[Rfam]
RNA sequence: UGUCUCCUCCAACACCUCCUAAGGUUUGGAUUUACCCGCAACCGCAAGGUCGCGGGUUUUUUUU
Numbered sequence: 001u002g003u004c005u006c007c008u009c010c011a012a013c014a015c016c017u018c019c020u021a022a023g024g025u026u027u028g029g030a031u032u033u034a035c036c037c038g039c040a041a042c043c044g045c046a047a048g049g050u051c052g053c054g055g056g057u058u059u060u061u062u063u064u
Stems, first nucleotide, its partner, number of pairs: 008030005014025003034057006041050001
This 64-nucleotide RNA sequence from Cognatundibacterium jejuense belongs to the Rfam family "Betaproteobacteria toxic small RNA". Lineage of the source: Bacteria > Pseudomonadati > Burkholderiales > Oxalobacteraceae > Cognatundibacterium. From the family's description: Overexpression in amino aid rich medium attenuates growth, suggesting role in repressing amino acid intake and metabolism. A search with the family's covariance model found it, with a score of 52 bits. The family has 51 seed sequences and 951 matches in Rfam 15.1.